[Rfam]
RNA: Glutamine riboswitch aptamer (glnA leader)
Organism: Leptolyngbyaceae cyanobacterium T60_A2020_046
Nucleotides: 071
Stems, first nucleotide, its partner, number of pairs: 003067005009037007040068001046058003
Number, partner (000 for none) and nucleotide at each position: 001000a002000u003067c004066g005065u006064u007063c008000a009037u010036c011035c012034u013033u014032c015031a016000u017000a018000a019000g020000u021000c022000c023000a024000u025000a026000u027000c028000g029000a030000u031015u032014g033013a034012a035011g036010g037009a038000c039000g040068g041000a042000a043000g044000u045000a046058g047057g048056g049000g050000a051000a052000u053000g054000u055000c056048c057047c058046u059000g060000a061000a062000g063007g064006a065005a066004c067003g068040c069000g070000c071000c